[Rfam]
The family of this 100-nucleotide sequence from Zizania palustris is "mir-395 microRNA precursor family". For this family Rfam cites "Computational Identification of Plant MicroRNAs and Their Targets, Including a Stress-Induced miRNA" (Jones-Rhoades and Bartel, Mol Cell, 2004). The organism belongs to Zizania, within Eukaryota. mir-395 was identified in both Arabidopsis thaliana and Oryza sativa computationally and was later experimentally verified. mir-395 is thought to target mRNAs coding for ATP sulphurylases. The match comes from Rfam's covariance-model search (64 bits).

RNA sequence: GUUUUACCAGGAGUUCCUUUCAAGCAUUUCACGUGGAGUUGUUUUAUUGAUAUGAAGCUUUAGAACCACGUGAUGUAUUUGAAGGAACUCUAGGUGGCAC
Numbered sequence: 001g002u003u004u005u006a007c008c009a010g011g012a013g014u015u016c017c018u019u020u021c022a023a024g025c026a027u028u029u030c031a032c033g034u035g036g037a038g039u040u041g042u043u044u045u046a047u048u049g050a051u052a053u054g055a056a057g058c059u060u061u062a063g064a065a066c067c068a069c070g071u072g073a074u075g076u077a078u079u080u081g082a083a084g085g086a087a088c089u090c091u092a093g094g095u096g097g098c099a100c
Stems, first nucleotide, its partner, number of pairs: 005096004011090010022080003026076002029073008
Dot-bracket structure: ....((((..((((((((((.(((.((.((((((((.............................)))))))).)).)))))))))))))..))))....